[Rfam]
Rfam assigns this 86-nucleotide RNA from Chiloscyllium punctatum to the family "Selenocysteine transfer RNA".
The organism belongs to Chiloscyllium, within Eukaryota.
The match comes from Rfam's covariance-model search (63 bits).
RNA sequence: GCCUGGAUGAUUCGUAGUGCUCUAGGGUGCAGGCUUCAAACCUGUAUCUGUUUAGCAAAAGAGUGGUUCAAUUCCACCUUCCAGGC
Numbered sequence: 001g002c003c004u005g006g007a008u009g010a011u012u013c014g015u016a017g018u019g020c021u022c023u024a025g026g027g028u029g030c031a032g033g034c035u036u037c038a039a040a041c042c043u044g045u046a047u048c049u050g051u052u053u054a055g056c057a058a059a060a061g062a063g064u065g066g067u068u069c070a071a072u073u074c075c076a077c078c079u080u081c082c083a084g085g086c
Base pairs, nucleotide, nucleotide: 001086002085003084004083005082006081007080009078012027013026015024016023017022028046029045030044031043032042033041048061049060051058052057063077064076065075066074